[Rfam]
RNA: mir-7398 microRNA precursor family
RNA sequence: UGUGUAGAGGCAGGGAAAUAUGCUGUGUUUUCUCUUUCGGUAAAUCCUUGUUUCUCACAGU
Numbered sequence: 001u002g003u004g005u006a007g008a009g010g011c012a013g014g015g016a017a018a019u020a021u022g023c024u025g026u027g028u029u030u031u032c033u034c035u036u037u038c039g040g041u042a043a044a045u046c047c048u049u050g051u052u053u054c055u056c057a058c059a060g061u
Base pairs, nucleotide, nucleotide: 002058003057004056006055007054008053009052010051011050013049014048015047017045022041023040024039